[Rfam]
RNA sequence: GCGACCGGGCCGCCGAGUCUUCCGAGCACUCACGUGCGACGUGGAGCCGGGGACCCAACUGUGCGGAUCUGGACGUUCUAGAUCAACAAGGGGUGAAUCCGAAAGGUAGGGCUACUCCGGCCCGAACCCGUCAGCUAACCCGGUAGGCGGCAAGGAGUGCCGUA
Numbered sequence: 001g002c003g004a005c006c007g008g009g010c011c012g013c014c015g016a017g018u019c020u021u022c023c024g025a026g027c028a029c030u031c032a033c034g035u036g037c038g039a040c041g042u043g044g045a046g047c048c049g050g051g052g053a054c055c056c057a058a059c060u061g062u063g064c065g066g067a068u069c070u071g072g073a074c075g076u077u078c079u080a081g082a083u084c085a086a087c088a089a090g091g092g093g094u095g096a097a098u099c100c101g102a103a104a105g106g107u108a109g110g111g112c113u114a115c116u117c118c119g120g121c122c123c124g125a126a127c128c129c130g131u132c133a134g135c136u137a138a139c140c141c142g143g144u145a146g147g148c149g150g151c152a153a154g155g156a157g158u159g160c161c162g163u164a
Base pairs, nucleotide, nucleotide: 011149012148013147014146018045019044020043046144047143048142049141050140051139056090091129092128093127099106100105109123110122111121112120
The record is a 164-nucleotide RNA from Planotetraspora silvatica, which matches "c-di-AMP riboswitch aptamer (ydaO/yuaA leader)" in Rfam. Lineage of the source: Bacteria > Bacillati > Actinomycetota > Streptosporangiaceae > Planotetraspora. The match comes from Rfam's covariance-model search (70 bits).